[Rfam]
RNA sequence: UAGGUCUGUCCUAAGUCAAACUUCUUUAAGUUUGACCAAGUGUACAUGAAAUUUUGCUAAUACCUACAACAUCAAACACAUAUAGUAGUAUGAAAAUAUAUUUUAUGGUUAAUCUAAUGAACUAAUGUGGUGUUGUAAAUGUUUGUAUAGUUUUCUGUAGACUUGAUCAAAGUUAAAGAAGUUUGACUUAGGACAAACUUUG
Numbered sequence: 001u002a003g004g005u006c007u008g009u010c011c012u013a014a015g016u017c018a019a020a021c022u023u024c025u026u027u028a029a030g031u032u033u034g035a036c037c038a039a040g041u042g043u044a045c046a047u048g049a050a051a052u053u054u055u056g057c058u059a060a061u062a063c064c065u066a067c068a069a070c071a072u073c074a075a076a077c078a079c080a081u082a083u084a085g086u087a088g089u090a091u092g093a094a095a096a097u098a099u100a101u102u103u104u105a106u107g108g109u110u111a112a113u114c115u116a117a118u119g120a121a122c123u124a125a126u127g128u129g130g131u132g133u134u135g136u137a138a139a140u141g142u143u144u145g146u147a148u149a150g151u152u153u154u155c156u157g158u159a160g161a162c163u164u165g166a167u168c169a170a171a172g173u174u175a176a177a178g179a180a181g182u183u184u185g186a187c188u189u190a191g192g193a194c195a196a197a198c199u200u201u202g
Stems, first nucleotide, its partner, number of pairs: 005197001007195003011191016031171005045157002048154005055147003059143004065137004072130003076126001